About this RNA
The record is a 306-nucleotide sequence from Striga hermonthica, which matches "Plant signal recognition particle RNA" in Rfam. The match comes from Rfam's covariance-model search (244 bits). The base pairs follow the family's consensus structure, which is taken from published work. By type it is a non-coding RNA gene.
RNA sequence: GCCGAGCUUGGUAACUCAAGCUUGUGACCCAAGUGGGGGCAUUAAUGUGAUGUGGACUUUGGGCCUGCUCAGCUGGCUGGGCCAUUAUAGACAUAUUGCUGGCCCGCCCGUUCCAAGCUGGGAGUUGGAUCUUGUGGCCCAGGCGAAGGCUUGGGCCUCCAGGUUCCAUAGAGUGGUGGGUACUGCGUCAGGCUGGUUUCACAGAGCAACGAGAACCACUUGCUCUCUGCAGUGGAAGGAUAACGGGCUGCUGUCUUCUUGACCCAAUAAAGCCUGAUGGACUGGCCCAAUAGGACAUUCAUUUUU
Dot-bracket structure: (((((((((((....))))))))....(((....))))))...((.((((.(((..(((((((((.(.(((.(.((((((((.(..(.(((........(((((((.((.(((((.((.((((((.((((((.(.(((((((((....))))))))).).))))))........(((((....(.(((....(((......)))....))).)..))))).)))))).))..)))))))....)))))))...)))).).).))).....)))).).))).).))))))).))..))))))).)).